[Rfam]
RNA: msiK RNA
RNA sequence: GAGCGGCGUCACUUCACAACGGAUCGUCCGGCACGUACCUGCCGGUGAAGGAGAAGAGA
Numbered sequence: 001g002a003g004c005g006g007c008g009u010c011a012c013u014u015c016a017c018a019a020c021g022g023a024u025c026g027u028c029c030g031g032c033a034c035g036u037a038c039c040u041g042c043c044g045g046u047g048a049a050g051g052a053g054a055a056g057a058g059a
Stems, first nucleotide, its partner, number of pairs: 010051001012050005028045006